The record is a 70-nucleotide RNA sequence from Urocitellus parryii, which matches "mir-221 microRNA precursor family" in Rfam. A search with the family's covariance model found it, with a score of 67 bits. A reference for the family is Soares et al. (2009), "Parallel DNA pyrosequencing unveils new zebrafish microRNAs", BMC Genomics. Rfam 15.1 lists 1,797 matches to the family in 643 species.

[Rfam]
RNA sequence: UGUGGCAUGAACCUGGCAUACAAUGUAGAUUUCUGUGUUUAUUUGGCAACAGCUACAUUGUCUGCUGGGU
Numbered sequence: 001u002g003u004g005g006c007a008u009g010a011a012c013c014u015g016g017c018a019u020a021c022a023a024u025g026u027a028g029a030u031u032u033c034u035g036u037g038u039u040u041a042u043u044u045g046g047c048a049a050c051a052g053c054u055a056c057a058u059u060g061u062c063u064g065c066u067g068g069g070u
Stems, first nucleotide, its partner, number of pairs: 013068006020061009033052004